[Rfam]
RNA sequence: UUAAAGGGAAUUUGCGACUGUUUAGUCACAUUAUUAGAACAGCCACACCUUCCUUUUAAGA
Numbered sequence: 001u002u003a004a005a006g007g008g009a010a011u012u013u014g015c016g017a018c019u020g021u022u023u024a025g026u027c028a029c030a031u032u033a034u035u036a037g038a039a040c041a042g043c044c045a046c047a048c049c050u051u052c053c054u055u056u057u058a059a060g061a
Stems, first nucleotide, its partner, number of pairs: 001059010013047002016044001018042005
RNA: mir-724 microRNA precursor family